[Rfam]
sroB RNA: a 77-nucleotide RNA sequence from Serratia proteamaculans. The organism belongs to Serratia proteamaculans, within Bacteria. Rfam's curators put it in the seed alignment. By type it is a small RNA. On this family, see Vogel et al., Nucleic Acids Res 2003: "RNomics in Escherichia coli detects new sRNA species and indicates parallel transcriptional output in bacteria". The family's consensus secondary structure was predicted with LocARNA.
RNA sequence: ACAGGGUUACAAUGCGUAUAACUACAAUACAAGAAAUUCCUCUUUGACUGGCCAGUAGCGAUAUUGGCCACUUUUUU
Numbered sequence: 001a002c003a004g005g006g007u008u009a010c011a012a013u014g015c016g017u018a019u020a021a022c023u024a025c026a027a028u029a030c031a032a033g034a035a036a037u038u039c040c041u042c043u044u045u046g047a048c049u050g051g052c053c054a055g056u057a058g059c060g061a062u063a064u065u066g067g068c069c070a071c072u073u074u075u076u077u
Stems, first nucleotide, its partner, number of pairs: 004015001006013002023029002049070009